A member of the RNA family "Small nucleolar RNA SNORA69" from Oreochromis niloticus, 135 nucleotides long. NCBI's taxonomy places the organism under Eukaryota, Bilateria, Teleostomi, Eurypterygia, Oreochromis. Rfam links the family to the GO terms RNA processing and nucleolus. The family's consensus secondary structure was predicted with PFOLD. Rfam 15.1 lists 808 matches to the family in 584 species. U69 is a member of the H/ACA class of small nucleolar RNAs (snoRNAs) which act as guides in the the modification of uridines to pseudouridines.
[Rfam]
RNA sequence: AAAGCAGGUCUGCAAUUGCAGCACUUAGUUACAGUGGAGUGCUGUCAUUAACCCUGCUGAGAGCAUGUUUCUGCUGCAGAGCUUGUUCUCUCACUCGCUGUGCCGGUGGUGAGGAAACUCUGUAGCCGAACACUA
Numbered sequence: 001a002a003a004g005c006a007g008g009u010c011u012g013c014a015a016u017u018g019c020a021g022c023a024c025u026u027a028g029u030u031a032c033a034g035u036g037g038a039g040u041g042c043u044g045u046c047a048u049u050a051a052c053c054c055u056g057c058u059g060a061g062a063g064c065a066u067g068u069u070u071c072u073g074c075u076g077c078a079g080a081g082c083u084u085g086u087u088c089u090c091u092c093a094c095u096c097g098c099u100g101u102g103c104c105g106g107u108g109g110u111g112a113g114g115a116a117a118c119u120c121u122g123u124a125g126c127c128g129a130a131c132a133c134u135a
Stems, first nucleotide, its partner, number of pairs: 003058006019044008070129002073126007087114004092109001095106003